[Rfam]
RNA: SAM riboswitch aptamer (S box leader)
Organism: Mucilaginibacter gracilis
RNA sequence: UGCUUAUAGAGAAAGACGGAGGGAUUAGACCCUGCGAUGUCUUAGCAACCUGUACUUACAAGGUGCUACAUUCUACUUAAACCACACUUCGCGGUUUAGGACAGAUAAGCG
Numbered sequence: 001u002g003c004u005u006a007u008a009g010a011g012a013a014a015g016a017c018g019g020a021g022g023g024a025u026u027a028g029a030c031c032c033u034g035c036g037a038u039g040u041c042u043u044a045g046c047a048a049c050c051u052g053u054a055c056u057u058a059c060a061a062g063g064u065g066c067u068a069c070a071u072u073c074u075a076c077u078u079a080a081a082c083c084a085c086a087c088u089u090c091g092c093g094g095u096u097u098a099g100g101a102c103a104g105a106u107a108a109g110c111g
Stems, first nucleotide, its partner, number of pairs: 001111007013043005021032003026075004044067004049063002051060003071103001076100008